[Rfam]
RNA sequence: GAUCGUUCUCAGGGCAGGGUGCAACUCCCUACCGGCGGUAUGCGGCCGAUUUGUGAAUGAACAAUUUGGUCGCGAGCCCGCGAGCGCCUUCCGCAAGGAAGGGUCAGCAGAUCAGGUGCGAUGCCUGGGCCGACGGUCAUAGUCCGGAUGAAAGAGAAUAUGC
Numbered sequence: 001g002a003u004c005g006u007u008c009u010c011a012g013g014g015c016a017g018g019g020u021g022c023a024a025c026u027c028c029c030u031a032c033c034g035g036c037g038g039u040a041u042g043c044g045g046c047c048g049a050u051u052u053g054u055g056a057a058u059g060a061a062c063a064a065u066u067u068g069g070u071c072g073c074g075a076g077c078c079c080g081c082g083a084g085c086g087c088c089u090u091c092c093g094c095a096a097g098g099a100a101g102g103g104u105c106a107g108c109a110g111a112u113c114a115g116g117u118g119c120g121a122u123g124c125c126u127g128g129g130c131c132g133a134c135g136g137u138c139a140u141a142g143u144c145c146g147g148a149u150g151a152a153a154g155a156g157a158a159u160a161u162g163c
Base pairs, nucleotide, nucleotide: 005159006158007157008156009155010154017029018028019027031143032142033132034131035081036080037079038078076130077129084108085107112128113127114126115125116124134146135145136144
Rfam assigns this 163-nucleotide RNA from Mesorhizobium sp. YM1C-6-2 to the family "FMN riboswitch aptamer (RFN element)". NCBI's taxonomy places the organism under Bacteria, Alphaproteobacteria, Hyphomicrobiales, Phyllobacteriaceae, Mesorhizobium. Rfam's curators write: The RFN element is a highly conserved domain that is found frequently in the 5'-untranslated regions of prokaryotic mRNAs that encode for flavin mononucleotide (FMN) biosynthesis and transport proteins.